[Rfam]
RNA sequence: GGCGGCGUGCCUAACACAUGCAAGUCGAGCGCGGUUAUUAUUCAACAUUGAGUAUUCUAUAAAAUAUAGUUGGAAUUGACAGCGAUUUCACUUUCUGCCUUAAAAACUUAAAGAAGGAAAAGUGAAACACGCAUCAUUAAGUAACUAACUAGAAACAUAGAGUAUUGAAUGUUGAAUAAUAACUGAGCGGCGGACGGGUGAGUAACGCGUGGGUAACCUGCCCUGUACAUAUGGAUAACAUGCUGAAAAGCAUACUAAUACAUAAUAACGUACAUUGAAGGCAUCUUCGAUGUAUCAAAGCGUUAGCGGUACAGGAUGGACCCGCGUCUGAUUAGCUAGUUGGUGGGGUAAAAGCCUACCAAGGCGACGAUCAGUAGCCGACCUGAGAGGGUGAUCGGCCACAUUGGAACUGAGACACGGUCCAAACUCCUACGGGAGGCAGCAGUGGGGGAUAUUGCACAAUGGGCGAAAGCUGAUGCAGCAACGCCGCGUGAACGAUGAAGGUCUUCGGAUCGUAAAGUUCUGUUGCAGGGGAAGAUAAUGACGGUACCCUGUGAGGAA
Numbered sequence: 001g002g003c004g005g006c007g008u009g010c011c012u013a014a015c016a017c018a019u020g021c022a023a024g025u026c027g028a029g030c031g032c033g034g035u036u037a038u039u040a041u042u043c044a045a046c047a048u049u050g051a052g053u054a055u056u057c058u059a060u061a062a063a064a065u066a067u068a069g070u071u072g073g074a075a076u077u078g079a080c081a082g083c084g085a086u087u088u089c090a091c092u093u094u095c096u097g098c099c100u101u102a103a104a105a106a107c108u109u110a111a112a113g114a115a116g117g118a119a120a121a122g123u124g125a126a127a128c129a130c131g132c133a134u135c136a137u138u139a140a141g142u143a144a145c146u147a148a149c150u151a152g153a154a155a156c157a158u159a160g161a162g163u164a165u166u167g168a169a170u171g172u173u174g175a176a177u178a179a180u181a182a183c184u185g186a187g188c189g190g191c192g193g194a195c196g197g198g199u200g201a202g203u204a205a206c207g208c209g210u211g212g213g214u215a216a217c218c219u220g221c222c223c224u225g226u227a228c229a230u231a232u233g234g235a236u237a238a239c240a241u242g243c244u245g246a247a248a249a250g251c252a253u254a255c256u257a258a259u260a261c262a263u264a265a266u267a268a269c270g271u272a273c274a275u276u277g278a279a280g281g282c283a284u285c286u287u288c289g290a291u292g293u294a295u296c297a298a299a300g301c302g303u304u305a306g307c308g309g310u311a312c313a314g315g316a317u318g319g320a321c322c323c324g325c326g327u328c329u330g331a332u333u334a335g336c337u338a339g340u341u342g343g344u345g346g347g348g349u350a351a352a353a354g355c356c357u358a359c360c361a362a363g364g365c366g367a368c369g370a371u372c373a374g375u376a377g378c379c380g381a382c383c384u385g386a387g388a389g390g391g392u393g394a395u396c397g398g399c400c401a402c403a404u405u406g407g408a409a410c411u412g413a414g415a416c417a418c419g420g421u422c423c424a425a426a427c428u429c430c431u432a433c434g435g436g437a438g439g440c441a442g443c444a445g446u447g448g449g450g451g452a453u454a455u456u457g458c459a460c461a462a463u464g465g466g467c468g469a470a471a472g473c474u475g476a477u478g479c480a481g482c483a484a485c486g487c488c489g490c491g492u493g494a495a496c497g498a499u500g501a502a503g504g505u506c507u508u509c510g511g512a513u514c515g516u517a518a519a520g521u522u523c524u525g526u527u528g529c530a531g532g533g534g535a536a537g538a539u540a541a542u543g544a545c546g547g548u549a550c551c552c553u554g555u556g557a558g559g560a561a
Base pairs, nucleotide, nucleotide: 002490003489004488005487006486007485008483009482010449015447016446017445019444020443021442024191025190026189029188030187033183039054040053041052042051043050044049198402199401200400207327208326209325210324211323212322213321214320217319218318222315223314224313225312226311227310228309230264231263232262233261240253241252242251243250244249270295271294272293273292274291275290276289278287279286280285300307301306328374329373330372335365336364337363340362341361342360343359344358345357346356347355377399378398379397380396381392382391383390384389404425405424406423407422408421427438428437429436430435455480457479458478459477463475464474466473467472493523494522495521496520503514504513505512506511527559528555529554530553531552532551533550537545
RNA: Bacterial small subunit ribosomal RNA, nucleotides 38 to 598
Organism: uncultured bacterium